[Rfam]
RNA sequence: ACAAUGGAGAGUUUGAUCCUGGCUCAGGAUGAACGCUAGCUACAGGCUUAACACAUGCAAGUCGAGGGGAAACGAUGAGAGAGCUUGCUCUCUCAGGCGUCGACCGGCGCACGGGUGAGUAACGCGUAUCCAACCUGCCCAUUACAGGGGAAUAACCUUGCGAAAGUAAGACUAAUGCCCCAUGGUAUUCUCAGCAGACAUCUAAUGAGGAUUAAAGAUUUAUCGGUAAUGGAUGGGGAUGCGUCUGAUUAGCUUGUUGGCGGGGUAACGGCCCACCAAGGCGACGAUCAGUAGGGGUUCUGAGAGGAAGGUCCCCCACAUUGGAACUGAGACACGGUCCAAACUCCUACGGGAGGCAGCAGUGAGGAAUAUUGGUCAAUGGGCGAGAGCCUGAACCAGCCAAGUAGCGUGCAGGACGACGGCCCUAUGGGUUGUAAACUGCUUUUAUAGGGGAAUAAAGUGAUCCACGUGUGGAUUAUUGUAUGUACCCUAUGAAUAAGGACCGGCUAAUUCCGUGCCAGCAGCCGCGGUAAUACGGAAGGUUCGGGCGUUAUCCGGAUUUAUUG
Number, nucleotide and partner (000 for none) at each position: 001a000002c000003a000004a000005u000006g000007g000008a000009g025010a024011g023012u022013u021014u000015g000016a000017u000018c000019c000020u000021g013022g012023c011024u010025c009026a000027g556028g555029a554030u553031g000032a552033a551034c550035g549036c548037u547038a000039g408040c407041u406042a405043c404044a000045g401046g400047c366048u000049u000050a000051a000052c364053a363054c362055a000056u361057g360058c359059a000060a000061g108062u107063c106064g000065a000066g105067g104068g000069g101070a100071a000072a000073c000074g000075a000076u000077g094078a093079g092080a091081g090082a089083g088084c000085u000086u000087g000088c083089u082090c081091u080092c079093u078094c077095a000096g000097g000098c000099g000100u070101c069102g000103a000104c067105c066106g063107g062108c061109g000110c000111a000112c000113g000114g000115g319116u318117g317118a000119g000120u000121a000122a000123c000124g244125c243126g242127u241128a240129u239130c238131c237132a000133a000134c236135c235136u000137g000138c000139c232140c231141a230142u229143u228144a227145c226146a000147g181148g180149g179150g178151a000152a000153u000154a000155a000156c000157c170158u169159u168160g167161c166162g000163a000164a000165a000166g161167u160168a159169a158170g157171a000172c000173u000174a000175a000176u000177g000178c150179c149180c148181c147182a000183u000184g000185g000186u000187a212188u211189u210190c209191u208192c207193a206194g000195c000196a203197g202198a000199c000200a000201u000202c197203u196204a000205a000206u193207g192208a191209g190210g189211a188212u187213u000214a000215a000216a000217g224218a223219u000220u000221u000222a000223u218224c217225g000226g145227u144228a143229a142230u141231g140232g139233a000234u000235g135236g134237g131238g130239a129240u128241g127242c126243g125244u124245c291246u290247g289248a000249u000250u000251a000252g282253c281254u280255u000256g000257u279258u278259g277260g276261c000262g274263g273264g272265g000266u000267a000268a000269c000270g000271g000272c264273c263274c262275a000276c260277c259278a258279a257280g254281g253282c252283g000284a000285c000286g000287a000288u000289c247290a246291g245292u000293a000294g316295g315296g314297g313298u309299u308300c307301u306302g000303a000304g000305a000306g301307g300308a299309a298310g000311g000312u000313c297314c296315c295316c294317c117318a116319c115320a000321u342322u341323g340324g339325a338326a000327c000328u000329g000330a000331g000332a000333c000334a000335c000336g000337g000338u325339c324340c323341a322342a321343a000344c355345u354346c353347c352348u000349a000350c000351g000352g347353g346354a345355g344356g000357c000358a000359g058360c057361a056362g054363u053364g052365a000366g047367g000368a000369a000370u000371a000372u398373u000374g397375g396376u395377c000378a000379a000380u393381g392382g391383g390384c389385g000386a000387g000388a000389g384390c383391c382392u381393g380394a000395a376396c375397c374398a372399g000400c046401c045402a000403a000404g043405u042406a041407g040408c039409g000410u000411g442412c441413a440414g439415g000416a000417c000418g000419a000420c000421g433422g432423c431424c430425c000426u000427a000428u000429g000430g424431g423432u422433u421434g000435u000436a000437a000438a000439c414440u413441g412442c411443u000444u000445u000446u000447a493448u492449a491450g490451g489452g488453g000454a000455a000456u483457a000458a000459a000460g000461u000462g477463a476464u475465c000466c000467a000468c000469g000470u000471g000472u000473g000474g000475a464476u463477u462478a000479u000480u000481g000482u000483a456484u000485g000486u000487a000488c452489c451490c450491u449492a448493u447494g000495a000496a000497u000498a000499a000500g545501g544502a543503c542504c541505g000506g000507c000508u000509a000510a000511u540512u539513c538514c537515g536516u000517g000518c000519c000520a000521g528522c527523a000524g000525c000526c000527g522528c521529g000530g000531u000532a000533a000534u000535a000536c515537g514538g513539a512540a511541g504542g503543u502544u501545c500546g000547g037548g036549c035550g034551u033552u032553a030554u029555c028556c027557g000558g000559a000560u000561u000562u000563a000564u000565u000566g000
A member of the RNA family "Bacterial small subunit ribosomal RNA" from Segatella oulorum, 566 nucleotides of a longer RNA. The base pairs follow the family's consensus structure, which is taken from published work.